[Rfam]
RNA sequence: UCACCUGGGAAAUCAAGAAUGGGUGGGGCCUGUGAAUAUGAGAGGAGGCGACCCACUCUUGGUUUCCAAGGUCA
Numbered sequence: 001u002c003a004c005c006u007g008g009g010a011a012a013u014c015a016a017g018a019a020u021g022g023g024u025g026g027g028g029c030c031u032g033u034g035a036a037u038a039u040g041a042g043a044g045g046a047g048g049c050g051a052c053c054c055a056c057u058c059u060u061g062g063u064u065u066c067c068a069a070g071g072u073c074a
Stems, first nucleotide, its partner, number of pairs: 003072004009066006016059002021054004028049004

Description: A member of the RNA family "mir-551 microRNA precursor family" from Python bivittatus, 74 nucleotides long. Lineage of the source: Eukaryota > Lepidosauria > Unidentata > Episquamata > Python. The family's consensus secondary structure was predicted with RNAalifold.